The family of this 295-nucleotide RNA sequence from Papaver somniferum is "Plant signal recognition particle RNA". It is annotated as a non-coding RNA gene.
RNA sequence: GUCGAGCUCGGUCGCGCGAGCUUGUAACCCAAGUGGGGACAUUAAGAUGGUUGAACACUGGUCGGGUUUCACCUGGUGCGCACGCUAUGUUGACUCGCCCGCUCCAAAUUGCGAGUUGGUCGCAUUGUCCGGGCGUAGGCUUGGGUUCUGUGAUCACUAUAGCGGAGGGCACCGCGUCAGGCUGGUUUCACAGAGCAACGAACACCUCCCUCUCUCGACAGUGGAAGGAUCACGAGUCGAUGUGUCACAGUUCCAACUCAGCCUGGUGAGCCGAGUCAGUUGAACAACCACCUUU
Dot-bracket structure: ((((((((((......)))))))....(((....))))))...(((.((((((..(((((.((((...(((((.(((..(.(((.((..((((((((.((..((((..(((.(((.((((((((..((((((((....))))))))..))))))))(....).(((((......(((....(((......)))....)))....)))))..))).)))...)))).))....))))))))))))))..............))).))))).))))..))).))..)))))).))).
The family's consensus secondary structure is taken from published work.